Shown here is an 84-nucleotide sequence from Pongo abelii, a member of the family "mir-548 microRNA precursor family".
It scores 90 bits against the family's covariance model.
For this family Rfam cites "Deep sequencing of the small RNA transcriptome of normal and malignant human B cells identifies hundreds of novel microRNAs" (Jima et al., Blood, 2010).
RNA sequence: UAUUAGGUUGGUGCUAAAGUAAUUGCAGUUUUCACCAUUGAAAGUAAUGGCAAAAACCGCAAUUACUUUAGCACCGACCUAAUA
Number, nucleotide and partner (000 for none) at each position: 001u084002a083003u082004u081005a080006g079007g078008u077009u076010g075011g074012u073013g072014c071015u070016a069017a068018a067019g066020u065021a064022a063023u062024u061025g060026c059027a000028g057029u056030u055031u054032u053033c000034a000035c050036c049037a048038u047039u046040g045041a000042a000043a000044g000045u040046a039047a038048u037049g036050g035051c000052a000053a032054a031055a030056a029057c028058c000059g026060c025061a024062a023063u022064u021065a020066c019067u018068u017069u016070a015071g014072c013073a012074c011075c010076g009077a008078c007079c006080u005081a004082a003083u002084a001